Rfam assigns this 299-nucleotide RNA from Acrobeloides nanus to the family "Metazoan signal recognition particle RNA".
Rfam's curators write: The signal recognition particle (SRP) is a universally conserved ribonucleoprotein. It is involved in the co-translational targeting of proteins to membranes. The eukaryotic SRP consists of a 300-nucleotide 7S RNA and six proteins: SRPs 72, 68, 54, 19, 14, and 9. Archaeal SRP consists of a 7S RNA and homologues of the eukaryotic SRP19 and SRP54 proteins. Eukaryotic and archaeal 7S RNAs have very similar secondary structures, as represented by this family. Eight helical elements fold into the Alu and S domains, separated by a long linker region. The Alu domain is thought to mediate the peptide chain elongation retardation function of the SRP. The universally conserved helix which interacts with the SRP54 M domain mediates signal sequence recognition. In eukaryotes and archaea, the SRP19-helix 6 complex is thought to be involved in SRP assembly and stabilises helix 8 for SRP54 binding. The Signal Recognition Particle Database (SRPDB) provides compilations of SRP components, with phylogenetic data and structural illustrations. Many sequences below the threshold for this family are clearly closely related, but are most likely to be SRP RNA derived pseudogenes. The human genome in particular is known to contain a large amount of SRP RNA related sequence, including Alu repeats. While the threshold of this family is set high so as to minimise the number of hits to such regions, it is likely that some remain.
The literature on the family includes a 2003 paper in Nucleic Acids Res by Rosenblad et al., "SRPDB: Signal Recognition Particle Database".
Clan: SRP clan.
RNA sequence: GCCGGGAUCGUGGCGGAUCUUGUAACACUGCGUCUGGUGGGCUAAGCAAGUGGGGAACGGUGUGAGCCGAGGAGCUACUCCUGGUAGCGUCUCUGCGACGACAUCCGGUCCAGUUCAAGCGCUGUGUCGCCAAGGGGCAAUUCUCGGAGGAGAGCUGUUCCUGGGUGUACAAUGCGAGACGGAACGGCUCAGGCUCCGAAAGGGAGCAGGCAAAAGUCUCCGCACGGCGACAGUGAACGGAUAGCUGGACAGAGCAGAAUUCUGCUAGGGGCCUUGGUGAAACAGUGACUCCUGCUCAU
Numbered sequence: 001g002c003c004g005g006g007a008u009c010g011u012g013g014c015g016g017a018u019c020u021u022g023u024a025a026c027a028c029u030g031c032g033u034c035u036g037g038u039g040g041g042c043u044a045a046g047c048a049a050g051u052g053g054g055g056a057a058c059g060g061u062g063u064g065a066g067c068c069g070a071g072g073a074g075c076u077a078c079u080c081c082u083g084g085u086a087g088c089g090u091c092u093c094u095g096c097g098a099c100g101a102c103a104u105c106c107g108g109u110c111c112a113g114u115u116c117a118a119g120c121g122c123u124g125u126g127u128c129g130c131c132a133a134g135g136g137g138c139a140a141u142u143c144u145c146g147g148a149g150g151a152g153a154g155c156u157g158u159u160c161c162u163g164g165g166u167g168u169a170c171a172a173u174g175c176g177a178g179a180c181g182g183a184a185c186g187g188c189u190c191a192g193g194c195u196c197c198g199a200a201a202g203g204g205a206g207c208a209g210g211c212a213a214a215a216g217u218c219u220c221c222g223c224a225c226g227g228c229g230a231c232a233g234u235g236a237a238c239g240g241a242u243a244g245c246u247g248g249a250c251a252g253a254g255c256a257g258a259a260u261u262c263u264g265c266u267a268g269g270g271g272c273c274u275u276g277g278u279g280a281a282a283c284a285g286u287g288a289c290u291c292c293u294g295c296u297c298a299u
Stems, first nucleotide, its partner, number of pairs: 001042003004021006026039003045296004050291001052289001057286002060283001066278007078271010089260002092258005104249006110240002113238005119231001120229008128167004133162007141154005168174002176220005187211003194204001196203002
Dot-bracket structure: (((((((((......))))))....(((........))))))..((((.(.(....((.(.....(((((((.....((((((((((.((.(((((.......((((((((.(((((.(((((((((((((.(((((((.(((((....))))).))))))).))))((...)).(((((......(((....(.((....)))....)))....))))).)))))))).)..)))))))...))))))....))))))).)))))))))))))))))....).))..).).))))...